[Rfam]
RNA sequence: CUUUAACAAUCCGGAACAAGCUGAAAAUUGAAACAGACACGCUGCUGCAUUUCUCCGUAAUAAGGAAUGCGCGGUGUGUCAGAGUCUCUCAAACUCGCAGCACGAAGACUUCUUCGG
Numbered sequence: 001c002u003u004u005a006a007c008a009a010u011c012c013g014g015a016a017c018a019a020g021c022u023g024a025a026a027a028u029u030g031a032a033a034c035a036g037a038c039a040c041g042c043u044g045c046u047g048c049a050u051u052u053c054u055c056c057g058u059a060a061u062a063a064g065g066a067a068u069g070c071g072c073g074g075u076g077u078g079u080c081a082g083a084g085u086c087u088c089u090c091a092a093a094c095u096c097g098c099a100g101c102a103c104g105a106a107g108a109c110u111u112c113u114u115c116g117g
Stems, first nucleotide, its partner, number of pairs: 020098002023096002028093002034082001036080010103116003107112001

Annotation:
A member of the RNA family "Salmonella enterica Typhi npcRNA 44" from Cronobacter sakazakii, 117 nucleotides long. It is annotated as a non-coding RNA gene. Rfam 15.1 lists 474 matches to the family in 137 species.